[Rfam]
The family of this 108-nucleotide RNA sequence from Candidatus Kurthia intestinigallinarum is "TPP riboswitch aptamer (THI element)". It scores 70 bits against the family's covariance model. The base pairs follow the family's consensus structure, which is taken from published work. Rfam's curators write: Vitamin B(1) in its active form thiamin pyrophosphate (TPP) is an essential coenzyme that is synthesised by coupling of pyrimidine and thiazole moieties in bacteria.
RNA sequence: AAAAGAUGCUAGGAGUGCUGAUGUUGUCAGCCGAGAAAUUCACGUAAUGAAUUAAUCCUUGAACCUGAUCUAGUUUGUACUAGCGUAGGAAAGCGUUGAUUGAUUCAU
Numbered sequence: 001a002a003a004a005g006a007u008g009c010u011a012g013g014a015g016u017g018c019u020g021a022u023g024u025u026g027u028c029a030g031c032c033g034a035g036a037a038a039u040u041c042a043c044g045u046a047a048u049g050a051a052u053u054a055a056u057c058c059u060u061g062a063a064c065c066u067g068a069u070c071u072a073g074u075u076u077g078u079a080c081u082a083g084c085g086u087a088g089g090a091a092a093g094c095g096u097u098g099a100u101u102g103a104u105u106c107a108u
Stems, first nucleotide, its partner, number of pairs: 006096005011059004017031005038052005064089004070083004